This 128-nucleotide RNA from Eudromia elegans belongs to the Rfam family "Small nucleolar RNA SNORA40". Rfam's curators write: The snoRNA ACA 40 belongs to the H/ACA family of snoRNAs and guides the pseudouridylation of 28S rRNA subunit at position U4565. NB This family has a high threshold value to exclude a large number of closely related sequences that do not appear to have conserved H and ACA boxes, and may be pseudogenes. The literature on the family includes a 1997 paper in J Mol Biol by Ofengand and Bakin, "Mapping to nucleotide resolution of pseudouridine residues in large subunit ribosomal RNAs from representative eukaryotes, prokaryotes, archaebacteria, mitochondria and chloroplasts". The family's consensus secondary structure was predicted with RNAalifold. NCBI's taxonomy places the organism under Eukaryota, Amniota, Archelosauria, Palaeognathae, Eudromia. The family's RNA type in Rfam is H/ACA-box small nucleolar RNA.

[Rfam]
RNA sequence: AGCACUUGUUCAGUUUUUGUCUCUCACUGUAGACAAAAACCUGGAACCUAGUGCUUAGAAAAAACCCUUCUUUGCAACGCACAGCUGAUCUCACUGUAUUAGUUGUGUUACUUAUAUGAAGGGACAAU
Numbered sequence: 001a002g003c004a005c006u007u008g009u010u011c012a013g014u015u016u017u018u019g020u021c022u023c024u025c026a027c028u029g030u031a032g033a034c035a036a037a038a039a040c041c042u043g044g045a046a047c048c049u050a051g052u053g054c055u056u057a058g059a060a061a062a063a064a065c066c067c068u069u070c071u072u073u074g075c076a077a078c079g080c081a082c083a084g085c086u087g088a089u090c091u092c093a094c095u096g097u098a099u100u101a102g103u104u105g106u107g108u109u110a111c112u113u114a115u116a117u118g119a120a121g122g123g124a125c126a127a128u
Base pairs, nucleotide, nucleotide: 001055002054003053004052005051006050008048010045013040014039015038016037017036018035019034020033066123067122068121071118073116074115080107081106082105083104084103085102086101087100088099089098